Overview:
This 73-nucleotide RNA sequence from Heliconius melpomene belongs to the Rfam family "mir-965 microRNA precursor family". The base pairs follow the family's consensus structure, which was predicted with RNAalifold. Its family is annotated with RISC complex and miRNA-mediated post-transcriptional gene silencing in the Gene Ontology. For this family Rfam cites "The regulation of silkworm fibroin L chain production by miRNA-965 and miRNA-1926 in insect cells" (Huang et al., Bioorg Khim, 2012).

RNA sequence: UAACUGAACGGGAGAAGUUAUAGCGCUGUAUGUUAUGUUAUAGCCAUAAGCGUAUAGCUUUUCCCCUUGGUUG
Number, nucleotide and partner (000 for none) at each position: 001u000002a000003a071004c070005u069006g068007a067008a000009c000010g065011g064012g063013a000014g061015a060016a000017g000018u057019u056020a055021u054022a053023g000024c000025g000026c050027u049028g000029u048030a047031u046032g045033u000034u000035a000036u000037g000038u000039u000040a000041u000042a000043g000044c000045c032046a031047u030048a029049a027050g026051c000052g000053u022054a021055u020056a019057g018058c000059u000060u015061u014062u000063c012064c011065c010066c000067u007068u006069g005070g004071u003072u000073g000